[Rfam]
Background: The family of this 71-nucleotide RNA from Salinarimonas ramus is "Makes More Granules Regulator RNA (mmgR)".
RNA sequence: UGCGGGCUCCCUUCUUGGGCGUUUCCUCCCUAGACUUCGGGCCGCACUCGCGGCCCGUUUUUUUAGGGCCG
Numbered sequence: 001u002g003c004g005g006g007c008u009c010c011c012u013u014c015u016u017g018g019g020c021g022u023u024u025c026c027u028c029c030c031u032a033g034a035c036u037u038c039g040g041g042c043c044g045c046a047c048u049c050g051c052g053g054c055c056c057g058u059u060u061u062u063u064u065a066g067g068g069c070c071g
Stems, first nucleotide, its partner, number of pairs: 009019003039056007
Background:
The base pairs follow the family's consensus structure. A search with the family's covariance model found it, with a score of 59 bits. On this family, see Ceizel Borella et al., FEMS Microbiol Lett 2016: "Expression of the Sinorhizobium meliloti small RNA gene mmgR is controlled by the nitrogen source".